[Rfam]
RNA: Purine riboswitch aptamer
RNA sequence: CAUCCAUAUCGAUAUCUUGUUCGUAUAUCCCUGAUAAUAGGGUUCAGGGGUCUCUACGAGGAACCGUAAAUUCCUGGCUACGAACGAGUGACUCUCCGUA
Numbered sequence: 001c002a003u004c005c006a007u008a009u010c011g012a013u014a015u016c017u018u019g020u021u022c023g024u025a026u027a028u029c030c031c032u033g034a035u036a037a038u039a040g041g042g043u044u045c046a047g048g049g050g051u052c053u054c055u056a057c058g059a060g061g062a063a064c065c066g067u068a069a070a071u072u073c074c075u076g077g078c079u080a081c082g083a084a085c086g087a088g089u090g091a092c093u094c095u096c097c098g099u100a
Stems, first nucleotide, its partner, number of pairs: 018086008029049006059075005